[Rfam]
RNA sequence: GAUCAAUGAUGAGAACAGUCAAAUCUGAGCAUCAGAAGACUUUUCAGUUCACCUGAUGGUCUCUAUAGCUCUGGGA
Numbered sequence: 001g002a003u004c005a006a007u008g009a010u011g012a013g014a015a016c017a018g019u020c021a022a023a024u025c026u027g028a029g030c031a032u033c034a035g036a037a038g039a040c041u042u043u044u045c046a047g048u049u050c051a052c053c054u055g056a057u058g059g060u061c062u063c064u065a066u067a068g069c070u071c072u073g074g075g076a
Stems, first nucleotide, its partner, number of pairs: 030058004038049003
Dot-bracket structure: .............................((((....(((......))).....))))..................
A member of the RNA family "Small nucleolar RNA U2-19" from Carlito syrichta, 76 nucleotides long. The family's RNA type in Rfam is C/D-box small nucleolar RNA. It scores 67 bits against the family's covariance model. Gene Ontology terms of the family: RNA processing and nucleolus. For this family Rfam cites "Guide RNAs with 5' Caps and Novel Box C/D snoRNA-like Domains for Modification of snRNAs in Metazoa" (Tycowski et al., Curr Biol, 2004). The base pairs follow the family's consensus structure, which is taken from published work. Rfam 15.1 lists 1,147 matches to the family in 531 species.